[Rfam]
L31-Coriobacteria ribosomal protein leader: a 36-nucleotide RNA from Physeter macrocephalus.
Rfam 15.1 lists 105 matches to the family in 84 species.
Its Rfam clan is "Ribosomal Protein L31 Leader clan".
RNA sequence: GGCCUGGCCGGUAGCCAGGCCAGGCAGAGCUAGGAG
Numbered sequence: 001g002g003c004c005u006g007g008c009c010g011g012u013a014g015c016c017a018g019g020c021c022a023g024g025c026a027g028a029g030c031u032a033g034g035a036g
Stems, first nucleotide, its partner, number of pairs: 001021008